RNA sequence: ACCAUCCUUUCCUUGGGGUUGCGCUGCUGUCCAACGAGUGCAUAAUGAGGGCUGUACUGCUAAUGCCUACGUAACAUGCCCACAUCAACUAGAGGUUUGCUUUACGUUGGUGCAAUUAUUUUAAAA
Numbered sequence: 001a002c003c004a005u006c007c008u009u010u011c012c013u014u015g016g017g018g019u020u021g022c023g024c025u026g027c028u029g030u031c032c033a034a035c036g037a038g039u040g041c042a043u044a045a046u047g048a049g050g051g052c053u054g055u056a057c058u059g060c061u062a063a064u065g066c067c068u069a070c071g072u073a074a075c076a077u078g079c080c081c082a083c084a085u086c087a088a089c090u091a092g093a094g095g096u097u098u099g100c101u102u103u104a105c106g107u108u109g110g111u112g113c114a115a116u117u118a119u120u121u122u123a124a125a126a
Base pairs, nucleotide, nucleotide: 006018007017008016009015021060022059023058026055027054029052030051031050032049038046039045083112084111085110086109087108090104091103092102093101094100
This 126-nucleotide RNA sequence from Homo sapiens belongs to the Rfam family "U4atac minor spliceosomal RNA".
For this family Rfam cites "Evolution of spliceosomal snRNA genes in metazoan animals" (Marz et al., J Mol Evol, 2008).